[Rfam]
RNA sequence: CCUCACGCUGAGCCGCGCGCACAAUACAUGAUGAAGAUGACGUUUUGUUCGUUCGGCUCGCGUUAAGC
Numbered sequence: 001c002c003u004c005a006c007g008c009u010g011a012g013c014c015g016c017g018c019g020c021a022c023a024a025u026a027c028a029u030g031a032u033g034a035a036g037a038u039g040a041c042g043u044u045u046u047g048u049u050c051g052u053u054c055g056g057c058u059c060g061c062g063u064u065a066a067g068c
Stems, first nucleotide, its partner, number of pairs: 001067001003065001005063003009060006018051002021048004026043002
About this RNA: mir-375 microRNA precursor family: a 68-nucleotide RNA sequence from Oncorhynchus kisutch. Its family is annotated with RISC complex and miRNA-mediated post-transcriptional gene silencing in the Gene Ontology. On this family, see Chen et al., Genes Dev 2005: "The developmental miRNA profiles of zebrafish as determined by small RNA cloning". Taxonomically the source falls in Oncorhynchus (Eukaryota, Chordata, Teleostomi, Salmoninae). The family's consensus secondary structure was predicted with RNAalifold.